[Rfam]
RNA sequence: GGCCUCCCUCUUUGGGGAGAUCAAUUGUGGAGCCUCCCCAUUGAUCGCCCUGUAGAGGGUGGCC
Numbered sequence: 001g002g003c004c005u006c007c008c009u010c011u012u013u014g015g016g017g018a019g020a021u022c023a024a025u026u027g028u029g030g031a032g033c034c035u036c037c038c039c040a041u042u043g044a045u046c047g048c049c050c051u052g053u054a055g056a057g058g059g060u061g062g063c064c
Stems, first nucleotide, its partner, number of pairs: 001064004006059006013052005019046007027039001029037003